A member of the RNA family "Small nucleolar RNA SNORA25" from Ictidomys tridecemlineatus, 129 nucleotides long. The family's RNA type in Rfam is H/ACA-box small nucleolar RNA. Rfam 15.1 lists 1,129 matches to the family in 449 species. Lineage of the source: Eukaryota > Eumetazoa > Dipnotetrapodomorpha > Theria > Ictidomys. ACA25 is a member of the H/ACA class of snoRNA that guide the sites of modification of uridines to pseudouridines.
RNA sequence: UGGUCAUUUCAAAGAGGGCUUUUGGGGCUGUGAAACCAGGAGCCCUUAACGCAGUGACCACAGAUUGAUGUUCUCCACAGGACCCCAUAGUCACUCAGUAGUGCUGUAUAUUCCUGAGGAGAUAACAUU
Numbered sequence: 001u002g003g004u005c006a007u008u009u010c011a012a013a014g015a016g017g018g019c020u021u022u023u024g025g026g027g028c029u030g031u032g033a034a035a036c037c038a039g040g041a042g043c044c045c046u047u048a049a050c051g052c053a054g055u056g057a058c059c060a061c062a063g064a065u066u067g068a069u070g071u072u073c074u075c076c077a078c079a080g081g082a083c084c085c086c087a088u089a090g091u092c093a094c095u096c097a098g099u100a101g102u103g104c105u106g107u108a109u110a111u112u113c114c115u116g117a118g119g120a121g122a123u124a125a126c127a128u129u
Stems, first nucleotide, its partner, number of pairs: 002059006014047008023039001026037002072122005079115004087107004092103004